[Rfam]
RNA: Guanidine-I riboswitch aptamer
RNA sequence: GUCAAUGUUUUCUAGGGUUCCGCAACAUGCUUGUUGGCCUGGUCCGAGAGAAAACACACAGCUUCAGCUGUGACACGGAAGGACAAAAGCCUGGGAGAA
Numbered sequence: 001g002u003c004a005a006u007g008u009u010u011u012c013u014a015g016g017g018u019u020c021c022g023c024a025a026c027a028u029g030c031u032u033g034u035u036g037g038c039c040u041g042g043u044c045c046g047a048g049a050g051a052a053a054a055c056a057c058a059c060a061g062c063u064u065c066a067g068c069u070g071u072g073a074c075a076c077g078g079a080a081g082g083a084c085a086a087a088a089g090c091c092u093g094g095g096a097g098a099a
Base pairs, nucleotide, nucleotide: 007055008054009053010052011051012050015045016044020042021041022039023036024035025034026033027032057072058071059070060069061068062067074094076097080092081091082090